[Rfam]
RNA sequence: UAUCUUUGCCGCUCGAUAGAAAACCUAUCGGUACAUAAUAAUCAUUGAAAUAAUAUUGGAAUG
Numbered sequence: 001u002a003u004c005u006u007u008g009c010c011g012c013u014c015g016a017u018a019g020a021a022a023a024c025c026u027a028u029c030g031g032u033a034c035a036u037a038a039u040a041a042u043c044a045u046u047g048a049a050a051u052a053a054u055a056u057u058g059g060a061a062u063g
Base pairs, nucleotide, nucleotide: 014030015029016028017027018026019025
The record is a 63-nucleotide RNA, which matches "S15-Flavobacteria ribosomal protein leader" in Rfam. The family's RNA type in Rfam is cis-regulatory leader. Clan: Ribosomal Protein S15 Leader clan. A reference for the family is Eckert and Weinberg (2020), "Discovery of 20 novel ribosomal leader candidates in bacteria and archaea", BMC Microbiol.